[Rfam]
The record is a 110-nucleotide RNA, which matches "c-di-GMP-II-GAG riboswitch aptamer" in Rfam.
RNA sequence: CAAGCAAGGGGACGCGACGAUCCUCGAGCCGUCUACGAGACGGUCGCCGAGCUGGAGCAGGGUUCCAGCGGGCUCGAGGGGAGCGAGUGGCGAGACCGACCCCCGGACCG
Numbered sequence: 001c002a003a004g005c006a007a008g009g010g011g012a013c014g015c016g017a018c019g020a021u022c023c024u025c026g027a028g029c030c031g032u033c034u035a036c037g038a039g040a041c042g043g044u045c046g047c048c049g050a051g052c053u054g055g056a057g058c059a060g061g062g063u064u065c066c067a068g069c070g071g072g073c074u075c076g077a078g079g080g081g082a083g084c085g086a087g088u089g090g091c092g093a094g095a096c097c098g099a100c101c102c103c104c105g106g107a108c109c110g
Stems, first nucleotide, its partner, number of pairs: 001110001005106001008103004013085003022079008042097002044093005